Record summary
A member of the RNA family "Bacillaceae-1 RNA" from Bacillus coahuilensis, 67 nucleotides long. Lineage of the source: Bacteria > Bacillota > Caryophanales > Bacillaceae > Bacillus coahuilensis. The sequence is in the family's curated seed alignment.

RNA sequence: UAAAAAUGAACGUCGAUUAAGUUUGCUACGUCCUGUAGCAACAUCGACAUCAUGUGCAAAGUGAGCU
Numbered sequence: 001u002a003a004a005a006a007u008g009a010a011c012g013u014c015g016a017u018u019a020a021g022u023u024u025g026c027u028a029c030g031u032c033c034u035g036u037a038g039c040a041a042c043a044u045c046g047a048c049a050u051c052a053u054g055u056g057c058a059a060a061g062u063g064a065g066c067u
Base pairs, nucleotide, nucleotide: 012048013047014046015045016044017043025039026038027037028036029035054066055065057063
Dot-bracket structure: ...........((((((.......(((((.....)))))...)))))).....((.(.....).)).